PyrR binding site: a 118-nucleotide RNA sequence from Heyndrickxia sporothermodurans. Rfam classes the family as a cis-regulatory element. A search with the family's covariance model found it, with a score of 71 bits.
[Rfam]
RNA sequence: CAUCCUUUUAAAAGCAGUCCAGAGAGGCUGACAAAGGUGGAUAUCUAUUAUUGGAUUUUGUGAUAUUCAAUGAUGGACUAACCUCUUUGUGGCUUCUUGCUAUAAAGAGGUUUUUUUU
Numbered sequence: 001c002a003u004c005c006u007u008u009u010a011a012a013a014g015c016a017g018u019c020c021a022g023a024g025a026g027g028c029u030g031a032c033a034a035a036g037g038u039g040g041a042u043a044u045c046u047a048u049u050a051u052u053g054g055a056u057u058u059u060g061u062g063a064u065a066u067u068c069a070a071u072g073a074u075g076g077a078c079u080a081a082c083c084u085c086u087u088u089g090u091g092g093c094u095u096c097u098u099g100c101u102a103u104a105a106a107g108a109g110g111u112u113u114u115u116u117u118u
Stems, first nucleotide, its partner, number of pairs: 004037005015030005045076012058063001080112013